[Rfam]
RNA sequence: UGAGUCGGCUGGGCGACCGCGGUGGGCGAGAGCCCAUCGAGGAAAGUCCGGACUCCACAGGGCAGGGUGGUUGCUAACAGCAACCCGGGGCGACCCGCGGGAAAGUGCCACAGAAAACAGACCGCCCGGUGGGUUCUCCACCGGGUAAGGGUGAAAAGGUGGUGUAAGAGACCACCAGCACCCCGGGUGACCGGGGUGGCUUGGUAAACCCCACCCGGAGCAAGGCCAAGAGGGCACCGGUAGGUGCCUGCGCGGACGUUCGAGGGUGGCCCGCCCGAGUCCGCGGGUAGGCCGCUUGAGCUUGUCGGUGACGGCAAGCCCAGAUGGAUGGUCGCCGAACGGGACUGCCGCAAGGCGCCCGGGAACAGAAUCCGGCUUACAGGCCGACUCAUCCG
Numbered sequence: 001u002g003a004g005u006c007g008g009c010u011g012g013g014c015g016a017c018c019g020c021g022g023u024g025g026g027c028g029a030g031a032g033c034c035c036a037u038c039g040a041g042g043a044a045a046g047u048c049c050g051g052a053c054u055c056c057a058c059a060g061g062g063c064a065g066g067g068u069g070g071u072u073g074c075u076a077a078c079a080g081c082a083a084c085c086c087g088g089g090g091c092g093a094c095c096c097g098c099g100g101g102a103a104a105g106u107g108c109c110a111c112a113g114a115a116a117a118c119a120g121a122c123c124g125c126c127c128g129g130u131g132g133g134u135u136c137u138c139c140a141c142c143g144g145g146u147a148a149g150g151g152u153g154a155a156a157a158g159g160u161g162g163u164g165u166a167a168g169a170g171a172c173c174a175c176c177a178g179c180a181c182c183c184c185g186g187g188u189g190a191c192c193g194g195g196g197u198g199g200c201u202u203g204g205u206a207a208a209c210c211c212c213a214c215c216c217g218g219a220g221c222a223a224g225g226c227c228a229a230g231a232g233g234g235c236a237c238c239g240g241u242a243g244g245u246g247c248c249u250g251c252g253c254g255g256a257c258g259u260u261c262g263a264g265g266g267u268g269g270c271c272c273g274c275c276c277g278a279g280u281c282c283g284c285g286g287g288u289a290g291g292c293c294g295c296u297u298g299a300g301c302u303u304g305u306c307g308g309u310g311a312c313g314g315c316a317a318g319c320c321c322a323g324a325u326g327g328a329u330g331g332u333c334g335c336c337g338a339a340c341g342g343g344a345c346u347g348c349c350g351c352a353a354g355g356c357g358c359c360c361g362g363g364a365a366c367a368g369a370a371u372c373c374g375g376c377u378u379a380c381a382g383g384c385c386g387a388c389u390c391a392u393c394c395g
Stems, first nucleotide, its partner, number of pairs: 001391010011380001012336007020039008044378003048375005053220004060272004065216005070084005085099001086097004100211002105209002107205003122150002124146009158176006178200001179198008224293004252284006264276004300319008